[Rfam]
About this RNA: A member of the RNA family "Prion pseudoknot" from Eudromia elegans, 42 nucleotides long. For this family Rfam cites "Pseudoknots in prion protein mRNAs confirmed by comparative sequence analysis and pattern searching" (Barrette et al., Nucleic Acids Res, 2001). Rfam's curators write: This family represents a predicted pseudoknot structure found in prion protein mRNA. It has been suggested that the family has a possible effect in prion protein translation. Rfam links the family to the GO term translation. The family has 148 seed sequences and 421 matches in Rfam 15.1. Rfam classes the family as a cis-regulatory element.
RNA sequence: CCAUGGAGGUGGCUGGGGCUCUUCCUUCAUGGUGGUGACUGG
Numbered sequence: 001c002c003a004u005g006g007a008g009g010u011g012g013c014u015g016g017g018g019c020u021c022u023u024c025c026u027u028c029a030u031g032g033u034g035g036u037g038a039c040u041g042g
Stems, first nucleotide, its partner, number of pairs: 001032009